[Rfam]
RNA sequence: AGGAAGAGGUCGGGAGAGACCCUUAAAGGGCGCCGAAGGAGCAAGAUGGGCGGUUGGCGGCCGCAGAUCAAAACUCUCAGGCAAAAGAACUGACUUCAGACC
Number, nucleotide and partner (000 for none) at each position: 001a000002g000003g000004a000005a000006g097007a096008g095009g094010u093011c092012g091013g090014g000015a000016g000017a000018g000019a000020c030021c029022c028023u000024u000025a000026a000027a000028g022029g021030g020031c000032g082033c081034c080035g078036a077037a000038g000039g076040a075041g074042c000043a000044a000045g069046a068047u000048g000049g000050g000051c000052g000053g000054u000055u000056g000057g000058c000059g000060g000061c000062c000063g000064c000065a000066g000067a000068u046069c045070a000071a000072a000073a000074c041075u040076c039077u036078c035079a000080g034081g033082c032083a000084a000085a000086a000087g000088a000089a000090c013091u012092g011093a010094c009095u008096u007097c006098a000099g000100a000101c000102c000
The record is a 102-nucleotide RNA from Carboxydocella thermautotrophica, which matches "Glycine riboswitch aptamer" in Rfam. The organism belongs to Carboxydocella thermautotrophica, within Bacteria. It scores 66 bits against the family's covariance model.